[Rfam]
RNA: Fluoride riboswitch aptamer (crcB RNA motif)
Organism: Schnuerera ultunensis
RNA sequence: AUAAAUAAUGGUGAUGGGGUUCACCAAAAUCGCUUAAUGCUAAUGACUCCUACAGGAAU
Numbered sequence: 001a002u003a004a005a006u007a008a009u010g011g012u013g014a015u016g017g018g019g020u021u022c023a024c025c026a027a028a029a030u031c032g033c034u035u036a037a038u039g040c041u042a043a044u045g046a047c048u049c050c051u052a053c054a055g056g057a058a059u
Stems, first nucleotide, its partner, number of pairs: 010025004016050006032040002